A member of the RNA family "M-box riboswitch aptamer (ykoK leader)" from Erysipelothrix sp. HDW6C, 158 nucleotides long. For this family Rfam cites "New RNA motifs suggest an expanded scope for riboswitches in bacterial genetic control" (Barrick et al., Proc Natl Acad Sci U S A, 2004). Pairs were carried over by alignment from the consensus structure.
RNA sequence: ACUAUUUCCCGGUAGGUGAGGCUACCAUAAGGAUAUGGGUUGUUGCCGCAAAAUAGUGGAGACACUAUGCGUUGGUUUGAACAGGUGUUAUCAAAAACAAGGUUUCACCUAAUACAACUUCACCGCCUUAUGGAGCUAAAGCUCAAACGGUAUACCAU
Numbered sequence: 001a002c003u004a005u006u007u008c009c010c011g012g013u014a015g016g017u018g019a020g021g022c023u024a025c026c027a028u029a030a031g032g033a034u035a036u037g038g039g040u041u042g043u044u045g046c047c048g049c050a051a052a053a054u055a056g057u058g059g060a061g062a063c064a065c066u067a068u069g070c071g072u073u074g075g076u077u078u079g080a081a082c083a084g085g086u087g088u089u090a091u092c093a094a095a096a097a098c099a100a101g102g103u104u105u106c107a108c109c110u111a112a113u114a115c116a117a118c119u120u121c122a123c124c125g126c127c128u129u130a131u132g133g134a135g136c137u138a139a140a141g142c143u144c145a146a147a148c149g150g151u152a153u154a155c156c157a158u
Stems, first nucleotide, its partner, number of pairs: 005154001007152001009150003013100001015143003020137003025133008039118005045076004055066004084109004090103003

Its family is annotated with response to magnesium ion and regulation of gene expression in the Gene Ontology. It scores 108 bits against the family's covariance model. The organism belongs to Erysipelothrix, within Bacteria.